Rfam assigns this 88-nucleotide RNA from Drosophila mojavensis to the family "mir-317 microRNA precursor family". The family has 25 seed sequences and 153 matches in Rfam 15.1. NCBI's taxonomy places the organism under Eukaryota, Panarthropoda, Panorpida, Drosophila, mojavensis species complex. Pairs were carried over by alignment from the consensus structure, which was predicted with RNAalifold.

Nucleotides: 088
Stems, first nucleotide, its partner, number of pairs: 008079003012075001015073003019069002021066003024061003028057001030055002
Number, partner (000 for none) and nucleotide at each position: 001000u002000g003000c004000a005000a006000u007000u008079g009078c010077c011000g012075c013000u014000g015073g016072g017071a018000u019069a020068c021066a022065c023064c024061c025060u026059g027000u028057g029000c030055u031054c032000g033000c034000u035000u036000u037000g038000a039000g040000u041000u042000u043000a044000u045000g046000u047000u048000g049000c050000a051000a052000g053000u054031g055030a056000a057028c058000a059026c060025a061024g062000c063000u064023g065022g066021u067000g068020g069019u070000a071017u072016c073015c074000a075012g076000a077010g078009g079008c080000c081000g082000u083000u084000g085000a086000c087000a088000g

Its family is annotated with miRNA-mediated post-transcriptional gene silencing and RISC complex in the Gene Ontology.